Overview: A member of the RNA family "Ascomycota telomerase RNA" from Leptographium clavigerum, 123 nucleotides of a longer RNA. The pairing is the family consensus, mapped onto this sequence. For this family Rfam cites "The common ancestral core of vertebrate and fungal telomerase RNAs" (Qi et al., Nucleic Acids Res, 2013). Rfam links the family to the GO terms telomerase activity, telomerase catalytic core complex and telomere maintenance via telomerase. Clan: Telomerase clan. The family has 4 seed sequences and 475 matches in Rfam 15.1.
[Rfam]
RNA sequence: UUCCCUACAGUUUCCCGAACAACCGAGUCUCUUCACCGGGAUUUCCAUUGGCAGAAACACUUCGUGUGAUCGUCUGCCCCUCUUGGACCUUUCGGCUUCGGAACUUAACCCUACGCUUCUUAU
Numbered sequence: 001u002u003c004c005c006u007a008c009a010g011u012u013u014c015c016c017g018a019a020c021a022a023c024c025g026a027g028u029c030u031c032u033u034c035a036c037c038g039g040g041a042u043u044u045c046c047a048u049u050g051g052c053a054g055a056a057a058c059a060c061u062u063c064g065u066g067u068g069a070u071c072g073u074c075u076g077c078c079c080c081u082c083u084u085g086g087a088c089c090u091u092u093c094g095g096c097u098u099c100g101g102a103a104c105u106u107a108a109c110c111c112u113a114c115g116c117u118u119c120u121u122a123u
Stems, first nucleotide, its partner, number of pairs: 009105003015101004